RNA sequence: GUCUUGAGGCAAUGUUAUCCUUACGAACCGUGUCAGAUCCGGAAGGAAGCAGCACUAAGUUUGGUAUAGCAUGUGCCUUAAGUUAAU
Numbered sequence: 001g002u003c004u005u006g007a008g009g010c011a012a013u014g015u016u017a018u019c020c021u022u023a024c025g026a027a028c029c030g031u032g033u034c035a036g037a038u039c040c041g042g043a044a045g046g047a048a049g050c051a052g053c054a055c056u057a058a059g060u061u062u063g064g065u066a067u068a069g070c071a072u073g074u075g076c077c078u079u080a081a082g083u084u085a086a087u
Base pairs, nucleotide, nucleotide: 001087002086004081005080006079007078008077009076010073012072013071014070015069016068017067019064020063023060024059030055031054032053033052038047039046040045
RNA: Bacterial small signal recognition particle RNA